[Rfam]
Annotation:
mir-55 microRNA precursor family: a 74-nucleotide RNA from Caenorhabditis elegans. It is one of the family's seed sequences. The base pairs follow the family's consensus structure, which was predicted with RNAalifold. The source organism's lineage runs through Eukaryota, Metazoa, Protostomia, Ecdysozoa and Caenorhabditis.

RNA sequence: AUGGGACUCGGCAGAAACCUAUCGGUUAUACUUUUUGGAUAUGCUAUACCCGUAUAAGUUUCUGCUGAGCCCCU
Numbered sequence: 001a002u003g004g005g006a007c008u009c010g011g012c013a014g015a016a017a018c019c020u021a022u023c024g025g026u027u028a029u030a031c032u033u034u035u036u037g038g039a040u041a042u043g044c045u046a047u048a049c050c051c052g053u054a055u056a057a058g059u060u061u062c063u064g065c066u067g068a069g070c071c072c073c074u
Base pairs, nucleotide, nucleotide: 003072004071005070007069008068009067010066011065012064013063014062015061016060017059018058024051025050027048028047029046030045031043033041